Rfam assigns this 113-nucleotide RNA sequence from Tropicimonas isoalkanivorans to the family "Guanidine-I riboswitch aptamer". NCBI's taxonomy places the organism under Bacteria, Pseudomonadati, Rhodobacterales, Roseobacteraceae, Tropicimonas. The match comes from Rfam's covariance-model search (79 bits). The pairing is the family consensus, mapped onto this sequence.
[Rfam]
RNA sequence: GGGCAGGGUGCUUAGGGUUCCGCUGCCGGGCGAUCCGGCAGGCCAGGUCCGAGAAGUGCCACCCCUGGGGCAAAUUCCGCAGGGGCACACGGCGGGCCAAAAUCCCGGGAGAU
Numbered sequence: 001g002g003g004c005a006g007g008g009u010g011c012u013u014a015g016g017g018u019u020c021c022g023c024u025g026c027c028g029g030g031c032g033a034u035c036c037g038g039c040a041g042g043c044c045a046g047g048u049c050c051g052a053g054a055a056g057u058g059c060c061a062c063c064c065c066u067g068g069g070g071c072a073a074a075u076u077c078c079g080c081a082g083g084g085g086c087a088c089a090c091g092g093c094g095g096g097c098c099a100a101a102a103u104c105c106c107g108g109g110a111g112a113u
Stems, first nucleotide, its partner, number of pairs: 007060006015050002020047002022044001023041006062085006088108001090111001094106003